[Rfam]
About this RNA
The family of this 81-nucleotide sequence from Caenorhabditis japonica is "mir-43 microRNA precursor family". Its family is annotated with miRNA-mediated post-transcriptional gene silencing and RISC complex in the Gene Ontology. A reference for the family is Ambros et al. (2003), "MicroRNAs and other tiny endogenous RNAs in C. elegans", Curr Biol. The base pairs follow the family's consensus structure, which was predicted with RNAalifold.

RNA sequence: UGGUCCCGGGACCGCAAGAAACUCGUGUUAUAUGCCAAAUCAGUGGGUCAUAUCACAGUUUACUUGCUGUCCCGGGCGCUU
Numbered sequence: 001u002g003g004u005c006c007c008g009g010g011a012c013c014g015c016a017a018g019a020a021a022c023u024c025g026u027g028u029u030a031u032a033u034g035c036c037a038a039a040u041c042a043g044u045g046g047g048u049c050a051u052a053u054c055a056c057a058g059u060u061u062a063c064u065u066g067c068u069g070u071c072c073c074g075g076g077c078g079c080u081u
Stems, first nucleotide, its partner, number of pairs: 002079001005076002008073005015066004019061005025056003029052001032051003035047001